[Rfam]
The record is a 79-nucleotide sequence, which matches "Proteo-phage-1 RNA" in Rfam.
RNA sequence: CCCUUGCCAGGGGGGUAUCUUCGGAUAGAGCCUGGACAGGAUUAGCGGGGAGUGCCUGUCACGAAAAACUCCCGCAGCA
Numbered sequence: 001c002c003c004u005u006g007c008c009a010g011g012g013g014g015g016u017a018u019c020u021u022c023g024g025a026u027a028g029a030g031c032c033u034g035g036a037c038a039g040g041a042u043u044a045g046c047g048g049g050g051a052g053u054g055c056c057u058g059u060c061a062c063g064a065a066a067a068a069c070u071c072c073c074g075c076a077g078c079a
Stems, first nucleotide, its partner, number of pairs: 001015004007035005017026003037058004045075005